[Rfam]
RNA sequence: CUCUGGAAAGAGCUUGAUAAUGAAGGCAAGACACCCAAGGGGCUACCUGCAUUUGCAGGGGAAACUCUCAGGUAAGAAAGACAGAG
Numbered sequence: 001c002u003c004u005g006g007a008a009a010g011a012g013c014u015u016g017a018u019a020a021u022g023a024a025g026g027c028a029a030g031a032c033a034c035c036c037a038a039g040g041g042g043c044u045a046c047c048u049g050c051a052u053u054u055g056c057a058g059g060g061g062a063a064a065c066u067c068u069c070a071g072g073u074a075a076g077a078a079a080g081a082c083a084g085a086g
Base pairs, nucleotide, nucleotide: 001086002085003084004083005082013030014029015028033073034072035071037068040067041066042065046060047059
RNA: Glycine riboswitch aptamer
Organism: Evansella caseinilytica